The family of this 69-nucleotide RNA from Izhakiella capsodis is "osmY RNA". Taxonomically the source falls in Izhakiella (Bacteria, Pseudomonadati, Pseudomonadota, Gammaproteobacteria). Rfam classes the family as a small RNA.
RNA sequence: GUGGCCACGCCGUUUGUAGCUGGAAGUCUCACAUUGUGGGCGGAUUAAGUAAGAAGGAAGAGAUCGAUG
Numbered sequence: 001g002u003g004g005c006c007a008c009g010c011c012g013u014u015u016g017u018a019g020c021u022g023g024a025a026g027u028c029u030c031a032c033a034u035u036g037u038g039g040g041c042g043g044a045u046u047a048a049g050u051a052a053g054a055a056g057g058a059a060g061a062g063a064u065c066g067a068u069g
Base pairs, nucleotide, nucleotide: 002022003021004020005019007017008016009015028040029039030038031037
Dot-bracket structure: .((((.(((.....))).)))).....((((.....)))).............................